[Rfam]
RNA sequence: GAGCAGUGAUGAGCGAAGUUUACUCUGAACUGGUAUUGCUGAGGCCUCGUGUCUUUGCUCUGACCAGGGCGUGAUCACGGAAUCUUCUCUCUGAGCUU
Dot-bracket structure: (.((.................................((.(.............).))....................................))).
Shown here is a 98-nucleotide RNA sequence from Trogon melanurus, a member of the family "Z30 small nucleolar RNA". Rfam classes the family as a C/D-box small nucleolar RNA. Its family is annotated with RNA processing and nucleolus in the Gene Ontology. Pairs were carried over by alignment from the consensus structure, which was predicted with PFOLD.